The record is an 88-nucleotide RNA sequence from Pseudaminobacter soli, which matches "Glycine riboswitch aptamer" in Rfam. Lineage of the source: Bacteria > Pseudomonadota > Alphaproteobacteria > Phyllobacteriaceae > Pseudaminobacter. The pairing is the family consensus, mapped onto this sequence. Rfam links the family to the GO term glycine biosynthetic process. It scores 68 bits against the family's covariance model. About the family: This family represents the bacterial glycine riboswitch.
RNA sequence: UACCUGUUUGCGGGAGAGAACAGCACAAAGCUGUCGCCGAAGGGGAAAUCGCCCGAAAUCUCUCAGGCAAAAGAACCGUCAACGGGAA
Numbered sequence: 001u002a003c004c005u006g007u008u009u010g011c012g013g014g015a016g017a018g019a020a021c022a023g024c025a026c027a028a029a030g031c032u033g034u035c036g037c038c039g040a041a042g043g044g045g046a047a048a049u050c051g052c053c054c055g056a057a058a059u060c061u062c063u064c065a066g067g068c069a070a071a072a073g074a075a076c077c078g079u080c081a082a083c084g085g086g087a088a
Stems, first nucleotide, its partner, number of pairs: 006083003010079004020034004036068003039064002043062003049056002